This 78-nucleotide RNA from Alligator mississippiensis belongs to the Rfam family "Mammalian CPEB3 ribozyme". The organism belongs to Alligator, within Eukaryota. The base pairs follow the family's consensus structure, which is taken from published work. About the family: The mammalian CPEB3 ribozyme is a self cleaving RNA located in the second intron of the CPEB3 gene which belongs to a family of genes regulating messenger RNA polyadenylation. It scores 42 bits against the family's covariance model.

[Rfam]
RNA sequence: GGUUGCAAGUUUGAGGCCAUAACAGAAGUGCUUCCCAGCAUGGUCCUGUCAGAUUCCAACAAAUCUGCAAAUUCUGCU
Numbered sequence: 001g002g003u004u005g006c007a008a009g010u011u012u013g014a015g016g017c018c019a020u021a022a023c024a025g026a027a028g029u030g031c032u033u034c035c036c037a038g039c040a041u042g043g044u045c046c047u048g049u050c051a052g053a054u055u056c057c058a059a060c061a062a063a064u065c066u067g068c069a070a071a072u073u074c075u076g077c078u
Stems, first nucleotide, its partner, number of pairs: 013046001015045004021078001023076005028041003050067006